[Rfam]
RNA sequence: AAAGGCAGUGAUGACUCGGAAAUAUUCAAGCUCAACAGACCGGAAUUAGGCUUUUCUUUCUUUUAAUUUGAGAGAUUCGUUUCUGUGUCGAUAAUCCCACUGAACUGAGCCUUU
Numbered sequence: 001a002a003a004g005g006c007a008g009u010g011a012u013g014a015c016u017c018g019g020a021a022a023u024a025u026u027c028a029a030g031c032u033c034a035a036c037a038g039a040c041c042g043g044a045a046u047u048a049g050g051c052u053u054u055u056c057u058u059u060c061u062u063u064u065a066a067u068u069u070g071a072g073a074g075a076u077u078c079g080u081u082u083c084u085g086u087g088u089c090g091a092u093a094a095u096c097c098c099a100c101u102g103a104a105c106u107g108a109g110c111c112u113u114u
Stems, first nucleotide, its partner, number of pairs: 001114006
This 114-nucleotide RNA from Brassica rapa belongs to the Rfam family "Small nucleolar RNA Z107/R87". For this family Rfam cites "The high diversity of snoRNAs in plants: identification and comparative study of 120 snoRNA genes from Oryza sativa" (Chen et al., Nucleic Acids Res, 2003). A search with the family's covariance model found it, with a score of 101 bits.